[Rfam]
RNA sequence: GGUUCCCAUUGGUGUAAAUCCAAUCACUUAGAUUUUAGCUGAGAUGUAAUUUCCCAUUGGUAGCAAAUAGUUAUCCAGUAAGCGGGAAAAUUGUAU
Numbered sequence: 001g002g003u004u005c006c007c008a009u010u011g012g013u014g015u016a017a018a019u020c021c022a023a024u025c026a027c028u029u030a031g032a033u034u035u036u037a038g039c040u041g042a043g044a045u046g047u048a049a050u051u052u053c054c055c056a057u058u059g060g061u062a063g064c065a066a067a068u069a070g071u072u073a074u075c076c077a078g079u080a081a082g083c084g085g086g087a088a089a090a091u092u093g094u095a096u
Base pairs, nucleotide, nucleotide: 009023010022011021012020052087053086054085055084057077059075060074061073062072063071064070

A member of the RNA family "Plastid-rps12 3UTR RNA" from Ceratophyllum demersum, 96 nucleotides long. The family has 1,299 seed sequences and 1,710 matches in Rfam 15.1. Taxonomically the source falls in Ceratophyllum (Eukaryota, Embryophyta, Ceratophyllales, Ceratophyllaceae). Rfam's curators put it in the seed alignment. By type it is a cis-regulatory element. Rfam's curators write: Plastid rpl20 is a non-coding RNA (ncRNA) recognised in plastids. It was found in the three prime untranslated region (3UTR) of rps12 gene, its 3UTR location sugest a role in transcript maduration. Pairs were carried over by alignment from the consensus structure, which was predicted with LocARNA.